[Rfam]
RNA sequence: UACUCCUCGCGUUCACUGCCGGCGUCUUUAUGUGUUGUGAUCCAUCAUAAGGCACGCGGUGAAUGCCAAGAGCG
Numbered sequence: 001u002a003c004u005c006c007u008c009g010c011g012u013u014c015a016c017u018g019c020c021g022g023c024g025u026c027u028u029u030a031u032g033u034g035u036u037g038u039g040a041u042c043c044a045u046c047a048u049a050a051g052g053c054a055c056g057c058g059g060u061g062a063a064u065g066c067c068a069a070g071a072g073c074g
Stems, first nucleotide, its partner, number of pairs: 003072003009066008018057002026052007
The record is a 74-nucleotide RNA from Diatraea saccharalis, which matches "mir-124 microRNA precursor family" in Rfam.
Rfam 15.1 lists 2,215 matches to the family in 905 species.
The organism belongs to Diatraea, within Eukaryota.